[Rfam]
RNA sequence: GGGCAGUGAUGAGAAAAAAGUCAUGCACCACUCUGAUGAUUUUUAUCAAUCAGUGCUGAUAAAUGUCUCAUACCCAUUUAAUCUGAGCCC
Numbered sequence: 001g002g003g004c005a006g007u008g009a010u011g012a013g014a015a016a017a018a019a020g021u022c023a024u025g026c027a028c029c030a031c032u033c034u035g036a037u038g039a040u041u042u043u044u045a046u047c048a049a050u051c052a053g054u055g056c057u058g059a060u061a062a063a064u065g066u067c068u069c070a071u072a073c074c075c076a077u078u079u080a081a082u083c084u085g086a087g088c089c090c
Base pairs, nucleotide, nucleotide: 001090002089003088004087
Shown here is a 90-nucleotide sequence from Senna tora, a member of the family "Small nucleolar RNA Z221/R21b".
The base pairs follow the family's consensus structure, which was predicted with WAR.
The family's RNA type in Rfam is C/D-box small nucleolar RNA.
The source organism's lineage runs through Eukaryota, Streptophyta, Tracheophyta, Cassieae and Senna.
For this family Rfam cites "The high diversity of snoRNAs in plants: identification and comparative study of 120 snoRNA genes from Oryza sativa" (Chen et al., Nucleic Acids Res, 2003).